Shown here is a 123-nucleotide sequence from Gossypium anomalum, a member of the family "MIR7504 microRNA precursor family". The family has 8 seed sequences and 7,343 matches in Rfam 15.1. The source organism's lineage runs through Eukaryota, Streptophytina, Embryophyta, malvids and Gossypium. The family's consensus secondary structure was predicted with RNAalifold.
RNA sequence: AAUAGGAGAAUGACAAACUAAAUUUUUCCUCAUAAUUUUCAGCUUUUUCCUCCUGAAAAAAUUGAAAUUAAACUAAAAAUAUUAAAUAUGAGGAGGAAAAAUCUUAUUUGUUAUUAUCCUAUU
Numbered sequence: 001a002a003u004a005g006g007a008g009a010a011u012g013a014c015a016a017a018c019u020a021a022a023u024u025u026u027u028c029c030u031c032a033u034a035a036u037u038u039u040c041a042g043c044u045u046u047u048u049c050c051u052c053c054u055g056a057a058a059a060a061a062u063u064g065a066a067a068u069u070a071a072a073c074u075a076a077a078a079a080u081a082u083u084a085a086a087u088a089u090g091a092g093g094a095g096g097a098a099a100a101a102u103c104u105u106a107u108u109u110g111u112u113a114u115u116a117u118c119c120u121a122u123u
Base pairs, nucleotide, nucleotide: 001123002122003121004120005119006118007117009115010114011113012112013111014110015109016108017107020104022102023101024100025099026098027097029095030094031093033091035089036088038086039085041083042082045079046078047077048076